[Rfam]
RNA: Guanidine-II riboswitch aptamer (mini-ykkC)
Organism: Spirosoma profusum
RNA sequence: CCAGGAGGACGACCUCCCCAUCAUGGGAAACUGGUUCGGGACGACCCGA
Dot-bracket structure: ...(((((....)))))..................(((((....)))))
Numbered sequence: 001c002c003a004g005g006a007g008g009a010c011g012a013c014c015u016c017c018c019c020a021u022c023a024u025g026g027g028a029a030a031c032u033g034g035u036u037c038g039g040g041a042c043g044a045c046c047c048g049a
Stems, first nucleotide, its partner, number of pairs: 004017005036049005